[Rfam]
Nucleotides: 117
Base pairs, nucleotide, nucleotide: 001080002079003078004077009038011037012036013035014034015033016032021030022029039067040066041065044063045062046061048058049057083106084105085104086103087101088100089099090098091097
Number, partner (000 for none) and nucleotide at each position: 001080g002079g003078u004077c005000a006000a007000g008000a009038g010000u011037g012036c013035c014034a015033c016032u017000g018000c019000a020000a021030a022029a023000c024000c025000c026000c027000g028000g029022u030021u031000u032016a033015g034014u035013g036012g037011c038009c039067g040066g041065c042000a043000a044063c045062c046061c047000u048058c049057c050000a051000g052000u053000u054000c055000g056000c057049g058048g059000u060000g061046g062045g063044g064000u065041g066040c067039c068000c069000c070000g071000g072000g073000u074000g075000a076000g077004g078003a079002c080001c081000u082000g083106g084105c085104c086103g087101g088100a089099u090098g091097g092000a093000g094000a095000a096000c097091c098090c099089a100088u101087c102000u103086c104085g105084g106083c107000a108000a109000g110000c111000g112000c113000g114000g115000a116000c117000c
This 117-nucleotide sequence from Garicola koreensis belongs to the Rfam family "SAM (S-adenosyl methionine) riboswitch aptamer". Pairs were carried over by alignment from the consensus structure, which is taken from published work.